[Rfam]
RNA sequence: GGAUAUCACUUUUUGCUAUCCCCGGCCAAUAAAGUAAUGACACAUAAGAUAACUUUUUCACGUGUCAUUGUUUUAUUAGUCGGGAAUAGCAAAAUAGUGCUAUCU
Numbered sequence: 001g002g003a004u005a006u007c008a009c010u011u012u013u014u015g016c017u018a019u020c021c022c023c024g025g026c027c028a029a030u031a032a033a034g035u036a037a038u039g040a041c042a043c044a045u046a047a048g049a050u051a052a053c054u055u056u057u058u059c060a061c062g063u064g065u066c067a068u069u070g071u072u073u074u075a076u077u078a079g080u081c082g083g084g085a086a087u088a089g090c091a092a093a094a095u096a097g098u099g100c101u102a103u104c105u
Base pairs, nucleotide, nucleotide: 002104003103004102005101011094012093013092014091015090016089017088018087019086021084022083023082024081025080026079028077029076030075031074032073033072034071035070036069037068038067039066040065041064042063043062045060047058048057049056
Shown here is a 105-nucleotide RNA from Prunus yedoensis, a member of the family "MIR6274 microRNA precursor family". The family's consensus secondary structure was predicted with RNAalifold. Taxonomically the source falls in Prunus yedoensis (Eukaryota, Viridiplantae, Streptophyta, Amygdaleae). It scores 86 bits against the family's covariance model.